[Rfam]
RNA sequence: GGGAUAGCCUUUCUCAGUAUUUUAUCCUAAUUAUAUUGUAUCAAGACUAUCUCCAUAAGGCAAAAAAGCAACGGCUUUAAAACCGUUGCUUUUUUGCCU
Numbered sequence: 001g002g003g004a005u006a007g008c009c010u011u012u013c014u015c016a017g018u019a020u021u022u023u024a025u026c027c028u029a030a031u032u033a034u035a036u037u038g039u040a041u042c043a044a045g046a047c048u049a050u051c052u053c054c055a056u057a058a059g060g061c062a063a064a065a066a067a068g069c070a071a072c073g074g075c076u077u078u079a080a081a082a083c084c085g086u087u088g089c090u091u092u093u094u095u096g097c098c099u
Base pairs, nucleotide, nucleotide: 001053003051004050005049006048007047012046013045014044018043021040028033058099059098060097061096062095063094064093065092066091068089069088070087071086072085073084074083
Shown here is a 99-nucleotide RNA from Streptococcus danieliae, a member of the family "Streptococcus sRNA SpF25". It scores 68 bits against the family's covariance model. A reference for the family is Mann et al. (2012), "Control of virulence by small RNAs in Streptococcus pneumoniae", PLoS Pathog. Rfam 15.1 lists 60 matches to the family in 29 species.